This 80-nucleotide RNA from Saliterribacillus persicus belongs to the Rfam family "ZMP/ZTP riboswitch aptamer (pfl RNA motif)". Lineage of the source: Bacteria > Bacillati > Bacillota > Bacillaceae > Saliterribacillus. A search with the family's covariance model found it, with a score of 61 bits. The base pairs follow the family's consensus structure, which is taken from published work.
RNA sequence: CAACCUAUGUGUAACUGGCGAAGCGCGGAUAACCGCAAGGGAGCACAUAGUAUACAUAGCCGUUCGCCUGGGCAAGGGUA
Numbered sequence: 001c002a003a004c005c006u007a008u009g010u011g012u013a014a015c016u017g018g019c020g021a022a023g024c025g026c027g028g029a030u031a032a033c034c035g036c037a038a039g040g041g042a043g044c045a046c047a048u049a050g051u052a053u054a055c056a057u058a059g060c061c062g063u064u065c066g067c068c069u070g071g072g073c074a075a076g077g078g079u080a
Stems, first nucleotide, its partner, number of pairs: 005050008015040002017068005025036004057075001059073003
Dot-bracket structure: ....((((((((..(([[[[[...((((....))))..))..))))))))......(.(((..]]]]]..))).).....